[Rfam]
RNA sequence: UAUGUCUGGACCCUGUUGUUGGACCUGCCCAGCUGUUGGUGAAGUCUUGUUCCAGGCAGCAAUGUUGACCUAAAGUAAAUUCCCAGAAGUCCUUCCUGGGAUUUGAAUUUGUAGUAACAGGUGCGAGCAUUCUAGCAGUAGUUUGAUGAUCACGUGUGAUACUAAAAACAGGA
Numbered sequence: 001u002a003u004g005u006c007u008g009g010a011c012c013c014u015g016u017u018g019u020u021g022g023a024c025c026u027g028c029c030c031a032g033c034u035g036u037u038g039g040u041g042a043a044g045u046c047u048u049g050u051u052c053c054a055g056g057c058a059g060c061a062a063u064g065u066u067g068a069c070c071u072a073a074a075g076u077a078a079a080u081u082c083c084c085a086g087a088a089g090u091c092c093u094u095c096c097u098g099g100g101a102u103u104u105g106a107a108u109u110u111g112u113a114g115u116a117a118c119a120g121g122u123g124c125g126a127g128c129a130u131u132c133u134a135g136c137a138g139u140a141g142u143u144u145g146a147u148g149a150u151c152a153c154g155u156g157u158g159a160u161a162c163u164a165a166a167a168a169c170a171g172g173a
Stems, first nucleotide, its partner, number of pairs: 002065003012056004018045003023040003082100003086095003108168003112164005118158002125151002128148004134143003
Rfam assigns this 173-nucleotide RNA sequence from Carlito syrichta to the family "Small Cajal body specific RNA 16".
Rfam describes the family as follows. scaRNAs are a specific class of small nuclear RNAs which localise to the Cajal bodies and guide the modification of RNA polymerase II transcribed spliceosomal RNAs U1, U2, U4, U5 and U12. ACA47 belongs to the H/ACA box class of guide RNAs as it has the predicted hairpin-hinge-hairpin-tail structure, the conserved H/ACA-box motifs and is found associated with GAR1. ACA47 is predicted to guide the pseudouridylation of residue U5 of the U1 spliceosomal snRNA.